The record is a 109-nucleotide RNA sequence from Musa acuminata, which matches "Small nucleolar RNA snoR97" in Rfam. By type it is an H/ACA-box small nucleolar RNA. The match comes from Rfam's covariance-model search (63 bits). The source organism's lineage runs through Eukaryota, Embryophyta, Euphyllophyta, Liliopsida and Musa acuminata.
RNA sequence: AAGAUAUCAUGGUAGUUGAGGCUAAAAAACACUCAUAAAAAGGGUGUUGUCAUCACCUACAUCUCUUUUAUACUAUAGGGGAUUGUAGUUGAAAAACAACACAAGAUCU
Numbered sequence: 001a002a003g004a005u006a007u008c009a010u011g012g013u014a015g016u017u018g019a020g021g022c023u024a025a026a027a028a029a030c031a032c033u034c035a036u037a038a039a040a041a042g043g044g045u046g047u048u049g050u051c052a053u054c055a056c057c058u059a060c061a062u063c064u065c066u067u068u069u070a071u072a073c074u075a076u077a078g079g080g081g082a083u084u085g086u087a088g089u090u091g092a093a094a095a096a097c098a099a100c101a102c103a104a105g106a107u108c109u
Base pairs, nucleotide, nucleotide: 044102045101046100047099048098049097055090057088058087059086060085062082063081064080065079